[Rfam]
RNA sequence: AAUUUAUACAGAAGCGGCGAGAGAACAGGCUCCCUGACCCGCUGGCAACCUUCAUCUGAUGAAAGGUGCCAAUUCCUGCCCGCAAGGCGUAAGGCCGGCGGGAGCUAUAAGUC
Numbered sequence: 001a002a003u004u005u006a007u008a009c010a011g012a013a014g015c016g017g018c019g020a021g022a023g024a025a026c027a028g029g030c031u032c033c034c035u036g037a038c039c040c041g042c043u044g045g046c047a048a049c050c051u052u053c054a055u056c057u058g059a060u061g062a063a064a065g066g067u068g069c070c071a072a073u074u075c076c077u078g079c080c081c082g083c084a085a086g087g088c089g090u091a092a093g094g095c096c097g098g099c100g101g102g103a104g105c106u107a108u109a110a111g112u113c
Stems, first nucleotide, its partner, number of pairs: 002112007013043005021032003026078004044070004049066002051063004079102005
Dot-bracket structure: .(((((((....(((((...(((..[[[[)))......)))))((((.((((((.....)))).))))))....]]]](((((..............)))))...))))))).
The record is a 113-nucleotide RNA from Hymenobacter aquaticus, which matches "SAM riboswitch aptamer (S box leader)" in Rfam. The organism belongs to Hymenobacter, within Bacteria.